[Rfam]
RNA sequence: AUGCAGGAUUUAGUUGCGAUUAUCUAUAACCUCUUGCUGAGGUGCGUUAGAGGAGAGGAUGAGAGCAUUGUUAAGACCAUUGGGGAAAACGACGCAUAGAGUUGAUCCACACUUACGUUGGUGUCGACAUACCUUGAGUCCAUAAGGAUUGAAAGUAAGUUGAUAAUGACCGAGUCAAGGUCCAGGCUGGCAACAGAGCAGACAGAGCGAGGCACAUCGAUGGGAAGCGAGGAAAGUCGACUUAAAGUUGUCCAAAGGAAAUAACAAUGUAAACUCAGACAAA
Number, nucleotide and partner (000 for none) at each position: 001a047002u046003g045004c044005a043006g000007g031008a000009u029010u028011u000012a000013g023014u022015u000016g000017c000018g000019a000020u000021u000022a014023u013024c000025u000026a000027u000028a010029a009030c000031c007032u000033c000034u000035u000036g000037c000038u000039g000040a000041g000042g000043u005044g004045c003046g002047u001048u056049a000050g000051a000052g000053g000054a000055g000056a048057g000058g000059a000060u277061g276062a275063g274064a000065g270066c269067a268068u267069u266070g265071u264072u263073a262074a000075g000076a000077c258078c257079a000080u255081u254082g253083g252084g000085g000086a000087a000088a000089a251090c250091g249092a248093c247094g000095c000096a000097u244098a243099g000100a242101g241102u240103u239104g238105a237106u233107c232108c231109a000110c000111a000112c227113u226114u225115a000116c222117g221118u220119u219120g218121g217122u216123g164124u163125c162126g161127a160128c159129a000130u157131a156132c155133c000134u000135u152136g000137a150138g149139u148140c147141c146142a000143u000144a000145a000146g141147g140148a139149u138150u137151g000152a135153a000154a000155g132156u131157a130158a000159g128160u127161u126162g125163a124164u123165a000166a000167u214168g213169a000170c212171c211172g000173a000174g208175u206176c205177a000178a000179g000180g203181u202182c201183c000184a000185g000186g000187c196188u195189g194190g000191c000192a000193a000194c189195a188196g187197a000198g000199c000200a000201g182202a181203c180204a000205g176206a175207g000208c174209g000210a000211g171212g170213c168214a167215c000216a122217u121218c120219g119220a118221u117222g116223g000224g000225a114226a113227g112228c000229g000230a000231g108232g107233a106234a000235a000236g000237u105238c104239g103240a102241c101242u100243u098244a097245a000246a000247g093248u092249u091250g090251u089252c083253c082254a081255a080256a000257g078258g077259a000260a000261a000262u073263a072264a071265c070266a069267a068268u067269g066270u065271a000272a000273a000274c063275u062276c061277a060278g000279a000280c000281a000282a000283a000

The record is a 283-nucleotide RNA sequence from Dictyostelium discoideum, which matches "Dictyostelium signal recognition particle" in Rfam. The sequence is in the family's curated seed alignment. The family's RNA type in Rfam is non-coding RNA gene. For this family Rfam cites "Novel non-coding RNAs in Dictyostelium discoideum and their expression during development" (Aspegren et al., Nucleic Acids Res, 2004). The base pairs follow the family's consensus structure, which is taken from published work.